mir-126 microRNA precursor family: a 73-nucleotide RNA from Neogobius melanostomus. Rfam links the family to the GO terms miRNA-mediated post-transcriptional gene silencing and RISC complex. On this family, see Altuvia et al., Nucleic Acids Res 2005: "Clustering and conservation patterns of human microRNAs". Pairs were carried over by alignment from the consensus structure, which was predicted with RNAalifold. The organism belongs to Neogobius, within Eukaryota.
RNA sequence: UCGCAGUGCAUUAUUACUCACGGUACGAGUUGAGAGCGGCAUAGCGCGUACCAAAAGUAAUAAUGGGCCGCAA
Number, nucleotide and partner (000 for none) at each position: 001u000002c000003g000004c000005a000006g000007u000008g000009c065010a064011u063012u062013a061014u060015u059016a058017c057018u056019c000020a000021c000022g052023g051024u050025a049026c048027g047028a000029g045030u000031u000032g000033a000034g000035a000036g000037c000038g000039g000040c000041a000042u000043a000044g000045c029046g000047c027048g026049u025050a024051c023052c022053a000054a000055a000056a018057g017058u016059a015060a014061u013062a012063a011064u010065g009066g000067g000068c000069c000070g000071c000072a000073a000